[Rfam]
RNA sequence: AAGCAGCAUCUGUACAGCGCCGCGGGCCUCCCUGGUGCCCAUGUCGCUGGCGAUGCGGCGAGA
Numbered sequence: 001a002a003g004c005a006g007c008a009u010c011u012g013u014a015c016a017g018c019g020c021c022g023c024g025g026g027c028c029u030c031c032c033u034g035g036u037g038c039c040c041a042u043g044u045c046g047c048u049g050g051c052g053a054u055g056c057g058g059c060g061a062g063a
Stems, first nucleotide, its partner, number of pairs: 003059002006056004015049005022042001024040004
The record is a 63-nucleotide sequence from Bodo saltans, which matches "Trypanosomatid snoRNA TB11Cs5H2" in Rfam. By type it is an H/ACA-box small nucleolar RNA. Lineage of the source: Eukaryota > Discoba > Euglenozoa > Eubodonida > Bodo. The literature on the family includes a 2008 paper in BMC Bioinformatics by Myslyuk et al., "Psiscan: a computational approach to identify H/ACA-like and AGA-like non-coding RNA in trypanosomatid genomes".